[Rfam]
RNA sequence: UGGUAGAUGCACCCUGAUUAAAUUUUUGCCCUCAGUCCCAAACAGACUGGGGUUUUUUCU
Numbered sequence: 001u002g003g004u005a006g007a008u009g010c011a012c013c014c015u016g017a018u019u020a021a022a023u024u025u026u027u028g029c030c031c032u033c034a035g036u037c038c039c040a041a042a043c044a045g046a047c048u049g050g051g052g053u054u055u056u057u058u059c060u
Base pairs, nucleotide, nucleotide: 002013003012004011029052030051031050033049034048035047036046037045
A member of the RNA family "Nitrogen stress-induced RNA 1" from Cyanomargarita calcarea, 60 nucleotides long. The literature on the family includes a 2010 paper in J Mol Biol by Ionescu et al., "Heterocyst-specific transcription of NsiR1, a non-coding RNA encoded in a tandem array of direct repeats in cyanobacteria". Taxonomically the source falls in Cyanomargarita calcarea (Bacteria, Bacillati, Nostocales, Cyanomargarita). By type it is a small RNA.